[Rfam]
RNA sequence: AGACCCCGUGCGGGAGAGUCCGUGCCCUCGUGGUGCGGCGCCGAAGGAGCAACUCUCCCCGUCAACCUCUCAGGCCAGCUGGACCGCGCGGGCGAG
Numbered sequence: 001a002g003a004c005c006c007c008g009u010g011c012g013g014g015a016g017a018g019u020c021c022g023u024g025c026c027c028u029c030g031u032g033g034u035g036c037g038g039c040g041c042c043g044a045a046g047g048a049g050c051a052a053c054u055c056u057c058c059c060c061g062u063c064a065a066c067c068u069c070u071c072a073g074g075c076c077a078g079c080u081g082g083a084c085c086g087c088g089c090g091g092g093c094g095a096g
Stems, first nucleotide, its partner, number of pairs: 006091008020038006040075003043071002047069003053061001
Shown here is a 96-nucleotide RNA from Allosaccharopolyspora coralli, a member of the family "Glycine riboswitch aptamer". NCBI's taxonomy places the organism under Bacteria, Actinomycetota, Pseudonocardiales, Pseudonocardiaceae, Allosaccharopolyspora.